[Rfam]
The record is a 149-nucleotide RNA from Pelodiscus sinensis, which matches "Small nucleolar RNA SNORA57" in Rfam. The organism belongs to Pelodiscus, within Eukaryota. Rfam links the family to the GO terms nucleolus and RNA processing. A reference for the family is Vitali et al. (2003), "Identification of 13 novel human modification guide RNAs", Nucleic Acids Res. About the family: U99 belongs to the H/ACA class of snoRNAs which are thought to guide the sites of modification of uridines to pseudouridines, the target for this family is unknown. The family has 26 seed sequences and 1,736 matches in Rfam 15.1.

RNA sequence: CCUCCUAUUCUUGGCAGAUCCGGGUGGUACGGUGCCCGGCUCUGUGAUGUUCUGGAGGCAGAUGAUGGGGAUCCAUCCCUCCGGUGUUCUGUCUUCGGUGCCAGUGGCUUACCCAUCUGCUGGUUCUAUCCUCAAGCUCCGGGACACGC
Number, nucleotide and partner (000 for none) at each position: 001c058002c057003u056004c055005c054006u000007a000008u000009u000010c000011u000012u000013g000014g000015c044016a043017g042018a041019u000020c039021c000022g037023g036024g035025u034026g000027g000028u000029a000030c000031g000032g000033u000034g025035c024036c023037c022038g000039g020040c000041u018042c017043u016044g015045u000046g000047a000048u000049g000050u000051u000052c000053u000054g005055g004056a003057g002058g001059c000060a000061g000062a000063u000064g000065a000066u000067g000068g000069g000070g000071a000072u000073c000074c000075a000076u000077c000078c000079c000080u000081c000082c141083g140084g139085u000086g137087u136088u000089c000090u000091g000092u000093c000094u000095u000096c000097g000098g000099u000100g000101c123102c122103a121104g120105u119106g118107g117108c000109u000110u000111a000112c000113c000114c000115a000116u000117c107118u106119g105120c104121u103122g102123g101124u000125u000126c000127u000128a000129u000130c000131c000132u000133c000134a000135a000136g087137c086138u000139c084140c083141g082142g000143g000144a000145c000146a000147c000148g000149c000